[Rfam]
RNA: MIR2907 microRNA precursor family
Organism: Oryza nivara
RNA sequence: GAGACGCCCCUAUCUUCGCCCACUCGGCCGCCACAUGGUGGCCGAGCGAGGGCCUCGGGGUAACUC
Numbered sequence: 001g002a003g004a005c006g007c008c009c010c011u012a013u014c015u016u017c018g019c020c021c022a023c024u025c026g027g028c029c030g031c032c033a034c035a036u037g038g039u040g041g042c043c044g045a046g047c048g049a050g051g052g053c054c055u056c057g058g059g060g061u062a063a064c065u066c
Stems, first nucleotide, its partner, number of pairs: 001066003008060004018053004023046006031038002